[Rfam]
RNA sequence: AACUAAUAACGUUGCAUAAUAAAACAAAGGAGGAAUGGACGAUGAAUAAUUAUAUGAAGACUUCAAACAAGGCAUUAUUGCGCUUAAAAAUAGAAUUUAUUUCACCGGACCAUUUCGCGAGCAAGGGAACUCUCCUUUAAUUUGGUUUUAUUUUAUACAAAGUGGUGACAAAUAAAUAUAU
Numbered sequence: 001a002a003c004u005a006a007u008a009a010c011g012u013u014g015c016a017u018a019a020u021a022a023a024a025c026a027a028a029g030g031a032g033g034a035a036u037g038g039a040c041g042a043u044g045a046a047u048a049a050u051u052a053u054a055u056g057a058a059g060a061c062u063u064c065a066a067a068c069a070a071g072g073c074a075u076u077a078u079u080g081c082g083c084u085u086a087a088a089a090a091u092a093g094a095a096u097u098u099a100u101u102u103c104a105c106c107g108g109a110c111c112a113u114u115u116c117g118c119g120a121g122c123a124a125g126g127g128a129a130c131u132c133u134c135c136u137u138u139a140a141u142u143u144g145g146u147u148u149u150a151u152u153u154u155a156u157a158c159a160a161a162g163u164g165g166u167g168a169c170a171a172a173u174a175a176a177u178a179u180a181u
Base pairs, nucleotide, nucleotide: 011158012157018152019151020150021149022148023147024146025145032116033115034114035113036112037111038110040107041106043104044103045102046101048097049096050095051094053092054091055090069085070084071083072081073080074079123138124137125136126135127134128133163170164169